[Rfam]
Rfam assigns this 58-nucleotide sequence from Photobacterium gaetbulicola to the family "Pseudomonas sRNA P26". Rfam describes the family as follows. This small RNA (sRNA) was computationally identified in the genome of the opportunistic pathogen Pseudomonas aeruginosa and its expression verified by northern blot analysis. P26 is conserved across many Gammaproteobacteria species and appears to be consistently located between the DNA directed RNA polymerase (beta subunit) and 50S ribosomal protein L7/L12 genes. The match comes from Rfam's covariance-model search (56 bits).

RNA sequence: UUACUUAAUUUCUUAGCCUUAAUUGGCUAAUGGCUGGUGGCUAAAAAGCCACCGGCCU
Number, nucleotide and partner (000 for none) at each position: 001u000002u000003a000004c000005u000006u000007a000008a000009u000010u000011u000012c000013u000014u029015a028016g027017c026018c025019u000020u000021a000022a000023u000024u000025g018026g017027c016028u015029a014030a000031u000032g057033g056034c055035u054036g053037g052038u051039g050040g049041c048042u000043a000044a000045a000046a000047a000048g041049c040050c039051a038052c037053c036054g035055g034056c033057c032058u000